[Rfam]
RNA sequence: UUGGUAUCUCCAAUUUUCUUGAAGAGAUUUCUAGUCUUUCAAGACAGGAAUCAAGACCAUCCCCAAGAGAAAGAAAUGCAAAAAGGCAAAGCCUCCUCAGAUAGCCAUUUUGCCUUUUUGCAUUUCUUUCUCUUGAG
Dot-bracket structure: ..(((...(((.....(((((((((.........))).))))))..)))......)))...(.(..(((((((.........(((((((.((...........))....))))))).........)))))))..).)
RNA: Small nucleolar RNA SNORA14
Organism: Ovis aries